[Rfam]
RNA sequence: AUGAACAUGUAUAAAAUUAUAAUUAUUUCAUCACAUUUACGUUAAAAAAUUUAUUUUAAUGGAAAUGUGAUACAAU
Numbered sequence: 001a002u003g004a005a006c007a008u009g010u011a012u013a014a015a016a017u018u019a020u021a022a023u024u025a026u027u028u029c030a031u032c033a034c035a036u037u038u039a040c041g042u043u044a045a046a047a048a049a050u051u052u053a054u055u056u057u058a059a060u061g062g063a064a065a066u067g068u069g070a071u072a073c074a075a076u
Stems, first nucleotide, its partner, number of pairs: 030071008
RNA: dfrA-dnaX RNA
Organism: Parvimonas micra